Rfam assigns this 92-nucleotide RNA from Canis lupus to the family "mir-8799 microRNA precursor family".
The base pairs follow the family's consensus structure, which was predicted with RNAalifold.
Its family is annotated with RISC complex and miRNA-mediated post-transcriptional gene silencing in the Gene Ontology.
Clan: mir-8791 microRNA precursor clan.
The source organism's lineage runs through Eukaryota, Craniata, Tetrapoda, Theria and Canis lupus.

RNA sequence: GGGCGGGGGCGGAUCCUGGGCUGUGCCCCGGCGCCCUGUGCUCCGGAGCCUGUGCUGUUGUUGGAUUAGUGCUCCCGGCGGCGCAGCCCCCU
Numbered sequence: 001g002g003g004c005g006g007g008g009g010c011g012g013a014u015c016c017u018g019g020g021c022u023g024u025g026c027c028c029c030g031g032c033g034c035c036c037u038g039u040g041c042u043c044c045g046g047a048g049c050c051u052g053u054g055c056u057g058u059u060g061u062u063g064g065a066u067u068a069g070u071g072c073u074c075c076c077g078g079c080g081g082c083g084c085a086g087c088c089c090c091c092u
Base pairs, nucleotide, nucleotide: 001091002090003089005087008084010081012079015078016077018075019074020073022071023070024069027064028063029057030056031055032054033053034052038050040049041048042047